[Rfam]
This 85-nucleotide sequence from Gadus morhua belongs to the Rfam family "mir-15 microRNA precursor family".
For this family Rfam cites "Identification of novel genes coding for small expressed RNAs" (Lagos-Quintana et al., Science, 2001).
Rfam 15.1 lists 2,045 matches to the family in 649 species.
From the family's description: This family represents the related mir-15a and mir-15b sequences.
Clan: mir-15 clan.

Nucleotides: 085
Base pairs, nucleotide, nucleotide: 001085002084003083004082005081006080013073014072015071016070017069018068019067020066021065022064023063024062026060027059028058029057030056031055032054033053035051
Number, partner (000 for none) and nucleotide at each position: 001085c002084c003083u004082u005081g006080g007000a008000c009000u010000g011000c012000u013073a014072u015071a016070g017069c018068a019067g020066c021065g022064c023063a024062u025000c026060a027059u028058g029057g030056u031055u032054u033053g034000a035051a036000a037000c038000g039000a040000u041000g042000u043000c044000a045000a046000a047000a048000g049000u050000g051035u052000c053033c054032a055031a056030a057029c058028c059027a060026u061000u062024a063023u064022g065021u066020g067019c068018u069017g070016c071015u072014g073013u074000a075000g076000a077000a078000u079000u080006u081005u082004a083003a084002g085001g